[Rfam]
RNA: L31-Actinobacteria ribosomal protein leader
RNA sequence: CCGGCACCGGUUCACCCCCGCCGCGAACGGCCCGGGGGACCCGGCGGCC
Numbered sequence: 001c002c003g004g005c006a007c008c009g010g011u012u013c014a015c016c017c018c019c020g021c022c023g024c025g026a027a028c029g030g031c032c033c034g035g036g037g038g039a040c041c042c043g044g045c046g047g048c049c
Base pairs, nucleotide, nucleotide: 003049004048005047007044008043009042010041015038016037017036018035019034020033